[Rfam]
RNA sequence: UGCAGCCAGCUGGGUGUGAUUUUUGCUUGUCAUAGUUACUCUGAUG
Numbered sequence: 001u002g003c004a005g006c007c008a009g010c011u012g013g014g015u016g017u018g019a020u021u022u023u024u025g026c027u028u029g030u031c032a033u034a035g036u037u038a039c040u041c042u043g044a045u046g
Base pairs, nucleotide, nucleotide: 005015006014007013016033017032018031019030020029

Small nucleolar RNA R442: a 46-nucleotide RNA from Drosophila albomicans. For this family Rfam cites "Genome-wide analyses of two families of snoRNA genes from Drosophila melanogaster, demonstrating the extensive utilization of introns for coding of snoRNAs" (Huang et al., RNA, 2005). The match comes from Rfam's covariance-model search (58 bits). The source organism's lineage runs through Eukaryota, Protostomia, Diptera, Drosophilinae and Drosophila.